[Rfam]
RNA sequence: UGCGUGCAUCGUAAGGUCCGCUGACCGGCAGACAGGAGUCAGCAGAGGGCAUAGUAGGACGUUACGUCUGAAGGCC
Numbered sequence: 001u002g003c004g005u006g007c008a009u010c011g012u013a014a015g016g017u018c019c020g021c022u023g024a025c026c027g028g029c030a031g032a033c034a035g036g037a038g039u040c041a042g043c044a045g046a047g048g049g050c051a052u053a054g055u056a057g058g059a060c061g062u063u064a065c066g067u068c069u070g071a072a073g074g075c076c
Stems, first nucleotide, its partner, number of pairs: 004021003008017003039046002048076003057069005
The record is a 76-nucleotide RNA sequence from Sodalis-like symbiont of Philaenus spumarius, which matches "Group II catalytic intron D1-D4-1" in Rfam. Rfam 15.1 lists 2,508 matches to the family in 1,144 species. A search with the family's covariance model found it, with a score of 50 bits. From the family's description: Group II introns are found in rRNA, tRNA and mRNA of organelles in fungi, plants and protists, and also in mRNA in bacteria. The literature on the family includes a 2003 paper in Crit Rev Biochem Mol Biol by Lehmann and Schmidt, "Group II introns: structure and catalytic versatility of large natural ribozymes".